A member of the RNA family "Small nucleolar RNA Z278" from Brachypodium distachyon, 116 nucleotides long. For this family Rfam cites "The high diversity of snoRNAs in plants: identification and comparative study of 120 snoRNA genes from Oryza sativa" (Chen et al., Nucleic Acids Res, 2003). The organism belongs to Brachypodium, within Eukaryota. snoZ278 is a C/D box small nucleolar RNA. Its methylation guide targets have not been reported.
RNA sequence: ACCUAUGAUGUAUCGCCCAACAUUUGGAGGUGCAGAUUGGCUGCAGGAUCCUGUUUACAGGAUGAACCUACCUGUAGCCGCUGCAUCCACAUGACAUUCACGGGCAAGUCUGAGGU
Numbered sequence: 001a002c003c004u005a006u007g008a009u010g011u012a013u014c015g016c017c018c019a020a021c022a023u024u025u026g027g028a029g030g031u032g033c034a035g036a037u038u039g040g041c042u043g044c045a046g047g048a049u050c051c052u053g054u055u056u057a058c059a060g061g062a063u064g065a066a067c068c069u070a071c072c073u074g075u076a077g078c079c080g081c082u083g084c085a086u087c088c089a090c091a092u093g094a095c096a097u098u099c100a101c102g103g104g105c106a107a108g109u110c111u112g113a114g115g116u
Base pairs, nucleotide, nucleotide: 001116002115003114049062050061051060052059053058